Shown here is a 76-nucleotide RNA from Crocodylus porosus, a member of the family "Mammalian CPEB3 ribozyme". Pairs were carried over by alignment from the consensus structure, which is taken from published work.
RNA sequence: UGACAAGUCUGAGGUCAUACAGCAGAAGUGCUCACAGUGUGGCCUGUCAGAUUCCAGUGAAUCUGCAAGUGCUCAA
Numbered sequence: 001u002g003a004c005a006a007g008u009c010u011g012a013g014g015u016c017a018u019a020c021a022g023c024a025g026a027a028g029u030g031c032u033c034a035c036a037g038u039g040u041g042g043c044c045u046g047u048c049a050g051a052u053u054c055c056a057g058u059g060a061a062u063c064u065g066c067a068a069g070u071g072c073u074c075a076a
Stems, first nucleotide, its partner, number of pairs: 013044004024073002027070001028040003048065007
About the family: The mammalian CPEB3 ribozyme is a self cleaving RNA located in the second intron of the CPEB3 gene which belongs to a family of genes regulating messenger RNA polyadenylation.